The record is a 91-nucleotide RNA from Barrientosiimonas humi, which matches "Selenocysteine transfer RNA" in Rfam. The family is grouped with related families in Rfam's "tRNA clan". The family has 109 seed sequences and 4,211 matches in Rfam 15.1. Taxonomically the source falls in Barrientosiimonas (Bacteria, Bacillati, Actinomycetes, Dermacoccaceae).
[Rfam]
RNA sequence: GGAGGCGUUCCUCGUCUGGUGACGGGCCCGGUCUUCAACACCGUGGUGAUCGAGCAUCUCGGUCAGGCGGGUUCGAUUCCCGUCCGCCUCC
Number, nucleotide and partner (000 for none) at each position: 001g091002g090003a089004g088005g087006c086007g085008u000009u000010c000011c026012u025013c024014g023015u022016c021017u000018g000019g000020u000021g016022a015023c014024g013025g012026g011027c045028c000029c043030g042031g041032u040033c000034u000035u000036c000037a000038a000039c000040a032041c031042c030043g029044u000045g027046g000047u065048g064049a063050u062051c061052g000053a000054g000055c000056a000057u000058c000059u000060c000061g051062g050063u049064c048065a047066g000067g000068c082069g081070g080071g079072u000073u000074c000075g000076a000077u000078u000079c071080c070081c069082g068083u000084c000085c007086g006087c005088c004089u003090c002091c001